The family of this 148-nucleotide sequence from Triticum aestivum is "Small nucleolar RNA snoR2/U65". Its family is annotated with RNA processing and nucleolus in the Gene Ontology. The family's consensus secondary structure was predicted with WAR. It scores 89 bits against the family's covariance model. A reference for the family is Shaw et al. (1998), "Localization and processing from a polycistronic precursor of novel snoRNAs in maize", J Cell Sci.

RNA sequence: GGCCCGAUGCCACGUCUCCAUUAGCGACAAGCCUUGACUGGAGAUGCUACAUUGUGCCGAGAGAGAGUUCUUGGACUUCUCACAUUUGAUAGGAACCUGUGGCUGUGAUUCAGUCGGUGCACAGAGCCGUUUUUUUGUGAUUACACUU
Numbered sequence: 001g002g003c004c005c006g007a008u009g010c011c012a013c014g015u016c017u018c019c020a021u022u023a024g025c026g027a028c029a030a031g032c033c034u035u036g037a038c039u040g041g042a043g044a045u046g047c048u049a050c051a052u053u054g055u056g057c058c059g060a061g062a063g064a065g066a067g068u069u070c071u072u073g074g075a076c077u078u079c080u081c082a083c084a085u086u087u088g089a090u091a092g093g094a095a096c097c098u099g100u101g102g103c104u105g106u107g108a109u110u111c112a113g114u115c116g117g118u119g120c121a122c123a124g125a126g127c128c129g130u131u132u133u134u135u136u137g138u139g140a141u142u143a144c145a146c147u148u
Stems, first nucleotide, its partner, number of pairs: 002057002005054005013046006020039001022037001024032002080140005092128002097124003101120001102118003